Nucleotides: 062
Stems, first nucleotide, its partner, number of pairs: 034059010
Number, partner (000 for none) and nucleotide at each position: 001000g002000a003000g004000u005000g006000u007000u008000g009000c010000a011000g012000c013000u014000c015000u016000u017000u018000c019000a020000g021000a022000a023000u024000u025000u026000g027000u028000c029000u030000a031000g032000c033000a034059g035058g036057u037056u038055u039054u040053c041052u042051g043050g044000u045000u046000c047000u048000u049000u050043c051042u052041g053040g054039a055038a056037g057036a058035c059034u060000c061000g062000c

A member of the RNA family "U7 small nuclear RNA" from Loxodonta africana, 62 nucleotides long. NCBI's taxonomy places the organism under Eukaryota, Metazoa, Teleostomi, Euteleostomi, Loxodonta. The match comes from Rfam's covariance-model search (60 bits).